[Rfam]
RNA: SAM (S-adenosyl methionine) riboswitch aptamer
Organism: Epidermidibacterium keratini
RNA sequence: GGUAACGAGUUCCAGCAUCAAGCCCUAGCUAGCUGGACGGCUUCCCUCCACCACGGUGGGGUGCCCUAGGUGAAUACCUGGCUCGAUCGCAAAAGCGAUGCGAGUAAGCGUGGUCU
Numbered sequence: 001g002g003u004a005a006c007g008a009g010u011u012c013c014a015g016c017a018u019c020a021a022g023c024c025c026u027a028g029c030u031a032g033c034u035g036g037a038c039g040g041c042u043u044c045c046c047u048c049c050a051c052c053a054c055g056g057u058g059g060g061g062u063g064c065c066c067u068a069g070g071u072g073a074a075u076a077c078c079u080g081g082c083u084c085g086a087u088c089g090c091a092a093a094a095g096c097g098a099u100g101c102g103a104g105u106a107a108g109c110g111u112g113g114u115c116u
Stems, first nucleotide, its partner, number of pairs: 001078004009038001011037006021030002039065003044061003048056002081105005086099005